This 88-nucleotide sequence from Heyndrickxia oleronia belongs to the Rfam family "c-di-GMP-I riboswitch aptamer". The family's consensus secondary structure is taken from published work. From the family's description: GEMM was predicted in a large-scale screen for bacterial structured RNA regulatory elements.
[Rfam]
RNA sequence: CUAACGAAAUGGCAAACCUUGCGAAAGUGAGGGACGCAAAGCUACGGGUCUAAGGUUCAUUUUGAAUGAUGAUCGCCGGGCUGCCGAA
Numbered sequence: 001c002u003a004a005c006g007a008a009a010u011g012g013c014a015a016a017c018c019u020u021g022c023g024a025a026a027g028u029g030a031g032g033g034a035c036g037c038a039a040a041g042c043u044a045c046g047g048g049u050c051u052a053a054g055g056u057u058c059a060u061u062u063u064g065a066a067u068g069a070u071g072a073u074c075g076c077c078g079g080g081c082u083g084c085c086g087a088a
Base pairs, nucleotide, nucleotide: 012037013036017032018031019030020029021028022027040082041081042080043079045078046077047076048073049072050071055067056066057065058064